Source information
Shown here is a 402-nucleotide sequence from Legionella israelensis, a member of the family "Bacterial RNase P class A". Rfam classes the family as a ribozyme. NCBI's taxonomy places the organism under Bacteria, Pseudomonadati, Pseudomonadota, Legionellales, Legionella. Ribonuclease P (RNase P) is a ubiquitous endoribonuclease, found in archaea, bacteria and eukarya as well as chloroplasts and mitochondria.
RNA sequence: AAAGUCGGUCAGGUAAUCGCUCUUUGUUUCAGGCUCAGUUGAAUUUAAAACUCAACUGGCCUGCAAAGGGAGGAAAGUCCGGGCUCCUCAGGACAGAGUGCCAGGUAACGCCUGGGAGGCGUAAGCCUACGGAAAGUGCCACAGAAAAUAUACCGCCUGUUAUUGCUAAGCGACAAACAGGUAAGGGUGAAAUGGUGCGGUAAGAGCGCACCGCGCGAUUGGUAACAGUCGUGGCAGGGAAAACCCCACUUGGAGCAAGACCAAAUAGGAAUCCAUUUGGCUGAUUUGCCAUCACGUACGGUCCGUACGGGAUUCGGGUAGGUCGCUUGAGGUAUACGGUGACGUGUAUCCCAGAUGAAUGAUUACCCACGACAGAACCCGGCUUAUCGACCGACUUUUUUA
Numbered sequence: 001a002a003a004g005u006c007g008g009u010c011a012g013g014u015a016a017u018c019g020c021u022c023u024u025u026g027u028u029u030c031a032g033g034c035u036c037a038g039u040u041g042a043a044u045u046u047a048a049a050a051c052u053c054a055a056c057u058g059g060c061c062u063g064c065a066a067a068g069g070g071a072g073g074a075a076a077g078u079c080c081g082g083g084c085u086c087c088u089c090a091g092g093a094c095a096g097a098g099u100g101c102c103a104g105g106u107a108a109c110g111c112c113u114g115g116g117a118g119g120c121g122u123a124a125g126c127c128u129a130c131g132g133a134a135a136g137u138g139c140c141a142c143a144g145a146a147a148a149u150a151u152a153c154c155g156c157c158u159g160u161u162a163u164u165g166c167u168a169a170g171c172g173a174c175a176a177a178c179a180g181g182u183a184a185g186g187g188u189g190a191a192a193u194g195g196u197g198c199g200g201u202a203a204g205a206g207c208g209c210a211c212c213g214c215g216c217g218a219u220u221g222g223u224a225a226c227a228g229u230c231g232u233g234g235c236a237g238g239g240a241a242a243a244c245c246c247c248a249c250u251u252g253g254a255g256c257a258a259g260a261c262c263a264a265a266u267a268g269g270a271a272u273c274c275a276u277u278u279g280g281c282u283g284a285u286u287u288g289c290c291a292u293c294a295c296g297u298a299c300g301g302u303c304c305g306u307a308c309g310g311g312a313u314u315c316g317g318g319u320a321g322g323u324c325g326c327u328u329g330a331g332g333u334a335u336a337c338g339g340u341g342a343c344g345u346g347u348a349u350c351c352c353a354g355a356u357g358a359a360u361g362a363u364u365a366c367c368c369a370c371g372a373c374a375g376a377a378c379c380c381g382g383c384u385u386a387u388c389g390a391c392c393g394a395c396u397u398u399u400u401u402a
Stems, first nucleotide, its partner, number of pairs: 001398010011387001012367007020070008075385003079382005084255004091304004096251005101115005116130001117128004131246002136244002139239002153186002155182007194212006213235001214233008259324004269315006295309005331350008